Shown here is a 79-nucleotide RNA sequence from Cnephaeus nilssonii, a member of the family "mir-9198 microRNA precursor family".
A search with the family's covariance model found it, with a score of 93 bits.
Pairs were carried over by alignment from the consensus structure, which was predicted with RNAalifold.
[Rfam]
RNA sequence: GCCGCCACUCACACCCGCUGCUGGCGCCCAGCGCCGGCCCCGAUCACUCGGUGCCAUCAGCGGGUGUGAGCGGCGGCUG
Numbered sequence: 001g002c003c004g005c006c007a008c009u010c011a012c013a014c015c016c017g018c019u020g021c022u023g024g025c026g027c028c029c030a031g032c033g034c035c036g037g038c039c040c041c042g043a044u045c046a047c048u049c050g051g052u053g054c055c056a057u058c059a060g061c062g063g064g065u066g067u068g069a070g071c072g073g074c075g076g077c078u079g
Base pairs, nucleotide, nucleotide: 004074005073006072008070009069010068011067012066013065014064015063016062017061018060019059020058022056023055024054025053026052027051028050